[Rfam]
Nucleotides: 051
Stems, first nucleotide, its partner, number of pairs: 006020006028045005
Number, partner (000 for none) and nucleotide at each position: 001000a002000c003000c004000g005000g006020a007019c008018c009017c010016g011015c012000a013000c014000a015011g016010c017009g018008g019007g020006u021000g022000g023000c024000u025000c026000c027000u028045c029044c030043g031042a032041g033000c034000g035000c036000c037000a038000u039000c040000c041032c042031u043030c044029g045028g046000u047000a048000a049000c050000c051000a